[Rfam]
Nucleotides: 062
Base pairs, nucleotide, nucleotide: 008028009027010026011025012024014022015021032055033054034053035052036051037050039048
Number, partner (000 for none) and nucleotide at each position: 001000u002000g003000u004000c005000u006000c007000c008028u009027c010026c011025a012024a013000c014022u015021c016000u017000c018000c019000u020000g021015g022014a023000a024012u025011u026010g027009g028008a029000u030000u031000g032055g033054c034053c035052c036051g037050c038000u039048a040000c041000c042000g043000c044000a045000a046000g047000g048039u049000c050037g051036c052035g053034g054033g055032c056000u057000u058000u059000u060000u061000u062000u
Betaproteobacteria toxic small RNA: a 62-nucleotide sequence from Noviherbaspirillum saxi. Overexpression in amino aid rich medium attenuates growth, suggesting role in repressing amino acid intake and metabolism. A reference for the family is Kimelman et al. (2012), "A vast collection of microbial genes that are toxic to bacteria", Genome Res. A search with the family's covariance model found it, with a score of 54 bits. Lineage of the source: Bacteria > Pseudomonadati > Betaproteobacteria > Burkholderiales > Noviherbaspirillum. Rfam 15.1 lists 951 matches to the family in 508 species.